Rfam assigns this 75-nucleotide sequence from Ureibacillus massiliensis to the family "Group II catalytic intron D1-D4-1".
RNA sequence: CAAGCUUACCAGUGAUGGCAAGCUGAAUUGUAAGAAGUCAGCAGAGGUCAUAGUAGUUUCUCUGAAAUGAAGGAC
Numbered sequence: 001c002a003a004g005c006u007u008a009c010c011a012g013u014g015a016u017g018g019c020a021a022g023c024u025g026a027a028u029u030g031u032a033a034g035a036a037g038u039c040a041g042c043a044g045a046g047g048u049c050a051u052a053g054u055a056g057u058u059u060c061u062c063u064g065a066a067a068u069g070a071a072g073g074a075c
Stems, first nucleotide, its partner, number of pairs: 001025002004023004009018003038045002047075003056068005

Background
On this family, see Bonen and Vogel, Trends Genet 2001: "The ins and outs of group II introns". It scores 70 bits against the family's covariance model.